Rfam assigns this 80-nucleotide sequence from Homo sapiens to the family "mir-4423 microRNA precursor family". Gene Ontology terms of the family: RISC complex and miRNA-mediated post-transcriptional gene silencing. The family's consensus secondary structure was predicted with RNAalifold. The organism belongs to Homo, within Eukaryota.

RNA sequence: AUCAUGUACUGCAGUUGCCUUUUUGUUCCCAUGCUGUUUAAGCCUAGCAUAGGCACCAAAAAGCAACAACAGUAUGUGAA
Numbered sequence: 001a002u003c004a005u006g007u008a009c010u011g012c013a014g015u016u017g018c019c020u021u022u023u024u025g026u027u028c029c030c031a032u033g034c035u036g037u038u039u040a041a042g043c044c045u046a047g048c049a050u051a052g053g054c055a056c057c058a059a060a061a062a063g064c065a066a067c068a069a070c071a072g073u074a075u076g077u078g079a080a
Base pairs, nucleotide, nucleotide: 002079003078004077005076006075007074008073009072010071011070014067015066016065017064018063020062021061022060023059024058025057029053030052031050032049033048034047035046036045